[Rfam]
RNA sequence: UACCUUUGCACACGAAUUGAGAAAAUCUUAAUUCAUACAUAAUAAUCAUUUAAAUAAUAUUAGCAUG
Numbered sequence: 001u002a003c004c005u006u007u008g009c010a011c012a013c014g015a016a017u018u019g020a021g022a023a024a025a026u027c028u029u030a031a032u033u034c035a036u037a038c039a040u041a042a043u044a045a046u047c048a049u050u051u052a053a054a055u056a057a058u059a060u061u062a063g064c065a066u067g
Stems, first nucleotide, its partner, number of pairs: 014034008
RNA: S15-Flavobacteria ribosomal protein leader